Shown here is a 138-nucleotide sequence, a member of the family "Bacteriophage Diversity-Generating Retroelement RNA". Rfam classes the family as a small RNA. A reference for the family is Handa et al. (2025), "RNA control of reverse transcription in a diversity-generating retroelement", Nature. The family's consensus secondary structure is taken from published work.
RNA sequence: CCGCCGGGAUGGCCACGGCCGCCCGGGGCGACCUACCUGUGGUCAGCCGUGCACCGACCUCCUUCGGGGAACACACGACCAGGUUCGCGAAACAGGGCGUAGUGAGGCCAAGGGCCGACAUCGAGACCUGCGCGCGAC
Numbered sequence: 001c002c003g004c005c006g007g008g009a010u011g012g013c014c015a016c017g018g019c020c021g022c023c024c025g026g027g028g029c030g031a032c033c034u035a036c037c038u039g040u041g042g043u044c045a046g047c048c049g050u051g052c053a054c055c056g057a058c059c060u061c062c063u064u065c066g067g068g069g070a071a072c073a074c075a076c077g078a079c080c081a082g083g084u085u086c087g088c089g090a091a092a093c094a095g096g097g098c099g100u101a102g103u104g105a106g107g108c109c110a111a112g113g114g115c116c117g118a119c120a121u122c123g124a125g126a127c128c129u130g131c132g133c134g135c136g137a138c
Base pairs, nucleotide, nucleotide: 001028002027004026005025006024007023008022012019013018060069061068062067083138085137086136087135088134089133093130094129095128096127102122103120